[Rfam]
RNA: mir-130 microRNA precursor family
Organism: Salmo salar
Nucleotides: 077
Stems, first nucleotide, its partner, number of pairs: 001077002005072004010067001012065008022055009
Number, partner (000 for none) and nucleotide at each position: 001077a002076a003000u004000g005072g006071c007070a008069c009000a010067a011000a012065a013064u014063u015062c016061c017060c018059u019058u020000u021000a022055u023054a024053g025052u026051g027050c028049g029048c030047u031000a032000c033000u034000u035000u036000u037000g038000g039000u040000c041000a042000a043000a044000a045000g046000u047030a048029g049028u050027g051026c052025a053024c054023u055022a056000u057000a058019a059018a060017g061016g062015g063014a064013a065012u066000g067010u068000g069008g070007u071006g072005c073000c074000a075000u076002u077001u